Rfam assigns this 174-nucleotide sequence from Virgibacillus oceani to the family "Lysine riboswitch aptamer". Rfam links the family to the GO term lysine biosynthetic process.

RNA sequence: CGGUGAGGUAGAGGUGCAGAUUAUAUGAGUACUCAACAUGAGAAUGACACCUAUGAUUGUUGAUGAAAGGAUUGUUUGCCGAAGCGUGAUAAGGGUCGAACUUAUGAUAGCUGGUAUGUCUUUGAAUAAGAGGUAUACUGUCAUGCAUUAUGUGUAUGGAGAACUACUGAUCGA
Numbered sequence: 001c002g003g004u005g006a007g008g009u010a011g012a013g014g015u016g017c018a019g020a021u022u023a024u025a026u027g028a029g030u031a032c033u034c035a036a037c038a039u040g041a042g043a044a045u046g047a048c049a050c051c052u053a054u055g056a057u058u059g060u061u062g063a064u065g066a067a068a069g070g071a072u073u074g075u076u077u078g079c080c081g082a083a084g085c086g087u088g089a090u091a092a093g094g095g096u097c098g099a100a101c102u103u104a105u106g107a108u109a110g111c112u113g114g115u116a117u118g119u120c121u122u123u124g125a126a127u128a129a130g131a132g133g134u135a136u137a138c139u140g141u142c143a144u145g146c147a148u149u150a151u152g153u154g155u156a157u158g159g160a161g162a163a164c165u166a167c168u169g170a171u172c173g174a
Stems, first nucleotide, its partner, number of pairs: 007168005016079006023072002033063006083112003086108002089105005113139011141159007